[Rfam]
The record is an 83-nucleotide RNA from Brevibacillus laterosporus, which matches "Glycine riboswitch aptamer" in Rfam.
Rfam's curators write: This family represents the bacterial glycine riboswitch.
The organism belongs to Brevibacillus laterosporus, within Bacteria.
A search with the family's covariance model found it, with a score of 48 bits.

RNA sequence: CUCUGGAGAGAGCUUUUUUCAUAGAAGCCACCAAAGGGGAAACCUACUUACCAGUAGGGUAACUCUCAGGUACCGGGACAGAG
Numbered sequence: 001c002u003c004u005g006g007a008g009a010g011a012g013c014u015u016u017u018u019u020c021a022u023a024g025a026a027g028c029c030a031c032c033a034a035a036g037g038g039g040a041a042a043c044c045u046a047c048u049u050a051c052c053a054g055u056a057g058g059g060u061a062a063c064u065c066u067c068a069g070g071u072a073c074c075g076g077g078a079c080a081g082a083g
Stems, first nucleotide, its partner, number of pairs: 001083005012028004030071003034066001037065003043058005